[Rfam]
RNA sequence: AUGGCUUCACUUUUUAAAUACGGUUCUGCUUGGACAAAUACGAUGAUGUUUGUGUCGGGCUGUUUCAAGUGGAGCUAGAAAUUGUUCCCCUCGCUAUCCGGUGAGUCAUUUUAUGGUUCAUCUGGACGUUGGGGAACCACAUUC
Number, nucleotide and partner (000 for none) at each position: 001a000002u078003g076004g075005c074006u000007u000008c071009a070010c069011u068012u067013u000014u000015u000016a065017a064018a000019u062020a061021c000022g000023g000024u000025u000026c000027u059028g000029c057030u000031u000032g000033g056034a055035c054036a000037a000038a053039u052040a051041c000042g000043a000044u000045g000046a000047u000048g000049u000050u000051u040052g039053u038054g035055u034056c033057g029058g000059g027060c000061u020062g019063u000064u017065u016066c000067a012068a011069g010070u009071g008072g000073a000074g005075c004076u003077a000078g002079a000080a000081a000082u000083u000084g137085u136086u135087c134088c133089c132090c131091u000092c128093g127094c000095u000096a000097u126098c125099c124100g123101g122102u000103g000104a000105g000106u116107c115108a114109u000110u000111u000112u000113a000114u108115g107116g106117u000118u000119c000120a000121u000122c101123u100124g099125g098126a097127c093128g092129u000130u000131g090132g089133g088134g087135a086136a085137c084138c000139a000140c000141a000142u000143u000144c000
RNA: Small nucleolar RNA snoR136
Organism: Rhododendron simsii